[Rfam]
RNA sequence: GAAGUAAGCUGGGUAAUCGCCGGUGCAAAGCUGAAAGGCUGCACGGGAGGAAAGUCCGAGCUCCACAGGGCAGGGUGCCGGAUAACGUCCGGCGGGAGCAAUCCUAGGGAUAGUGCCACAGAAAUGUAGACCGCCGAUGGAUGUGUGUUGCUUGCAGCACCGUCACAGGCAAGGAUGCAACGGUGCGGUAAGAGCGCACCAGCAGCCUGGAGACAGGCUGGCUAGGUAAACCCCACCUGGAGCAAGACCGGAUAGGAGUGCAUAUGCGGCGGCCCGUCGCGCACUCGGGUUGGUCGCUGGAGCGGAUUGGCAACAAUUCGCCUAGAUAGAUGGUUACCGCCCAUUGUGCGAGGCAGAACAUGUUGACGCGAUUGCCAUUAGACGAUUGGCGCGGCAUCAGUAUGCCGUUUGCAGCACGGGGACACAGAACUCGGCUUACAGGACUUGCUUCCAAC
Numbered sequence: 001g002a003a004g005u006a007a008g009c010u011g012g013g014u015a016a017u018c019g020c021c022g023g024u025g026c027a028a029a030g031c032u033g034a035a036a037g038g039c040u041g042c043a044c045g046g047g048a049g050g051a052a053a054g055u056c057c058g059a060g061c062u063c064c065a066c067a068g069g070g071c072a073g074g075g076u077g078c079c080g081g082a083u084a085a086c087g088u089c090c091g092g093c094g095g096g097a098g099c100a101a102u103c104c105u106a107g108g109g110a111u112a113g114u115g116c117c118a119c120a121g122a123a124a125u126g127u128a129g130a131c132c133g134c135c136g137a138u139g140g141a142u143g144u145g146u147g148u149u150g151c152u153u154g155c156a157g158c159a160c161c162g163u164c165a166c167a168g169g170c171a172a173g174g175a176u177g178c179a180a181c182g183g184u185g186c187g188g189u190a191a192g193a194g195c196g197c198a199c200c201a202g203c204a205g206c207c208u209g210g211a212g213a214c215a216g217g218c219u220g221g222c223u224a225g226g227u228a229a230a231c232c233c234c235a236c237c238u239g240g241a242g243c244a245a246g247a248c249c250g251g252a253u254a255g256g257a258g259u260g261c262a263u264a265u266g267c268g269g270c271g272g273c274c275c276g277u278c279g280c281g282c283a284c285u286c287g288g289g290u291u292g293g294u295c296g297c298u299g300g301a302g303c304g305g306a307u308u309g310g311c312a313a314c315a316a317u318u319c320g321c322c323u324a325g326a327u328a329g330a331u332g333g334u335u336a337c338c339g340c341c342c343a344u345u346g347u348g349c350g351a352g353g354c355a356g357a358a359c360a361u362g363u364u365g366a367c368g369c370g371a372u373u374g375c376c377a378u379u380a381g382a383c384g385a386u387u388g389g390c391g392c393g394g395c396a397u398c399a400g401u402a403u404g405c406c407g408u409u410u411g412c413a414g415c416a417c418g419g420g421g422a423c424a425c426a427g428a429a430c431u432c433g434g435c436u437u438a439c440a441g442g443a444c445u446u447g448c449u450u451c452c453a454a455c
Stems, first nucleotide, its partner, number of pairs: 001451008009442002011439001012338007020047002023044005052437003056434005061242004068275004073238005078092005093107001094105004108233002113231002115227003131174002133170003138165003182200006202222001203220007246295004256286006266280005302321008
A member of the RNA family "Bacterial RNase P class A" from Alicyclobacillus sp. SO9, 455 nucleotides long. The family's RNA type in Rfam is ribozyme. The match comes from Rfam's covariance-model search (286 bits). The organism belongs to Alicyclobacillus, within Bacteria.